A member of the RNA family "tRNA" from Corynebacterium yudongzhengii, 74 nucleotides long. Lineage of the source: Bacteria > Bacillati > Actinomycetota > Mycobacteriales > Corynebacterium. It is annotated as a transfer RNA. It scores 73 bits against the family's covariance model.
RNA sequence: GGCGGUGUAGCUCAGCUGGUGAGAGCGCACGACUCAUAAUCGUGAGGUCGAGAGUUCGAGUCUCUCCACCGCUA
Numbered sequence: 001g002g003c004g005g006u007g008u009a010g011c012u013c014a015g016c017u018g019g020u021g022a023g024a025g026c027g028c029a030c031g032a033c034u035c036a037u038a039a040u041c042g043u044g045a046g047g048u049c050g051a052g053a054g055u056u057c058g059a060g061u062c063u064c065u066c067c068a069c070c071g072c073u074a
Base pairs, nucleotide, nucleotide: 001073002072003071004070005069006068007067010026011025012024013023028044029043030042031041032040050066051065052064053063054062